[Rfam]
RNA sequence: UCACUGGGAAGUUCAUCAGGAAGGUUACACUUAUGCUCAGUACUUUAGGGAAGGUCUGAGAUAAGAGCCAAUGACUAUCCUUACAGGGUAUCACCUGAUGCAGGUGGAUGAGUUAUUAGUAAGGCUGGGCCCUGGCUUAGGCAUAUGCAGGAGAAGCUAAGGAAACAAGGGUCUUUCUUCCUUGGAAGAUGCUCACCUCCCAAGGGUUUGGGACAGACUCAUAGCUGGCAUUGCUGAAUUCAAUGGGAUGAAGUGAGGCUAAUGCCACAUAUGGUCCUCAUAACAUAAUUCAGACUAUUCUCCCUCUGA
Dot-bracket structure: (((...(((..[[[[[[...((((..................)))).........(((((.....(((.......(((((.....)))))((((((.....))))))(((((((..............(((((.....................................................................)))))........))))))).)))...................]].]]]]((((((.................)))))).......))))).......)))...)))
Numbered sequence: 001u002c003a004c005u006g007g008g009a010a011g012u013u014c015a016u017c018a019g020g021a022a023g024g025u026u027a028c029a030c031u032u033a034u035g036c037u038c039a040g041u042a043c044u045u046u047a048g049g050g051a052a053g054g055u056c057u058g059a060g061a062u063a064a065g066a067g068c069c070a071a072u073g074a075c076u077a078u079c080c081u082u083a084c085a086g087g088g089u090a091u092c093a094c095c096u097g098a099u100g101c102a103g104g105u106g107g108a109u110g111a112g113u114u115a116u117u118a119g120u121a122a123g124g125c126u127g128g129g130c131c132c133u134g135g136c137u138u139a140g141g142c143a144u145a146u147g148c149a150g151g152a153g154a155a156g157c158u159a160a161g162g163a164a165a166c167a168a169g170g171g172u173c174u175u176u177c178u179u180c181c182u183u184g185g186a187a188g189a190u191g192c193u194c195a196c197c198u199c200c201c202a203a204g205g206g207u208u209u210g211g212g213a214c215a216g217a218c219u220c221a222u223a224g225c226u227g228g229c230a231u232u233g234c235u236g237a238a239u240u241c242a243a244u245g246g247g248a249u250g251a252a253g254u255g256a257g258g259c260u261a262a263u264g265c266c267a268c269a270u271a272u273g274g275u276c277c278u279c280a281u282a283a284c285a286u287a288a289u290u291c292a293g294a295c296u297a298u299u300c301u302c303c304c305u306c307u308g309a
Stems, first nucleotide, its partner, number of pairs: 001309003007303003012252004016247002021046004056293005066226003076090005091107006108222007129207005253281006
The record is a 309-nucleotide RNA sequence from Chelonia mydas, which matches "Nuclear RNase P" in Rfam. A reference for the family is Frank and Pace (1998), "Ribonuclease P: unity and diversity in a tRNA processing ribozyme", Annu Rev Biochem. Its Rfam clan is "RNaseP clan". Rfam describes the family as follows. Ribonuclease P (RNase P) is a ubiquitous endoribonuclease, found in archaea, bacteria and eukarya as well as chloroplasts and mitochondria.